[Rfam]
RNA: Streptococcus sRNA SpR18
Organism: Anaerococcus tetradius
RNA sequence: UUCGAGAGGAAAGUGAUAUGAAAAACUGUAACUGGGAUUAAAAUGGGAACAUUUGUUAAAAAGAAUAAAUUGAAUAAUAGUUCCAAGUGGUUUACAUUUGGACAAAAAAUUAGAUCAUAACUUAAGUGUU
Numbered sequence: 001u002u003c004g005a006g007a008g009g010a011a012a013g014u015g016a017u018a019u020g021a022a023a024a025a026c027u028g029u030a031a032c033u034g035g036g037a038u039u040a041a042a043a044u045g046g047g048a049a050c051a052u053u054u055g056u057u058a059a060a061a062a063g064a065a066u067a068a069a070u071u072g073a074a075u076a077a078u079a080g081u082u083c084c085a086a087g088u089g090g091u092u093u094a095c096a097u098u099u100g101g102a103c104a105a106a107a108a109a110u111u112a113g114a115u116c117a118u119a120a121c122u123u124a125a126g127u128g129u130u
Stems, first nucleotide, its partner, number of pairs: 007033002011029001013027001037123001043118004051066004080103002083101007